[Rfam]
RNA sequence: CGGACCAUCAGAGUCCGUUGGGAUGUGGCCCAGUACGGGCUGAACCGCAAA
Numbered sequence: 001c002g003g004a005c006c007a008u009c010a011g012a013g014u015c016c017g018u019u020g021g022g023a024u025g026u027g028g029c030c031c032a033g034u035a036c037g038g039g040c041u042g043a044a045c046c047g048c049a050a051a
Stems, first nucleotide, its partner, number of pairs: 001017005019047003027041005

eL15-Euryarchaeota ribosomal protein leader: a 51-nucleotide RNA. The family's RNA type in Rfam is cis-regulatory leader. The base pairs follow the family's consensus structure, which is taken from published work. The literature on the family includes a 2020 paper in BMC Microbiol by Eckert and Weinberg, "Discovery of 20 novel ribosomal leader candidates in bacteria and archaea".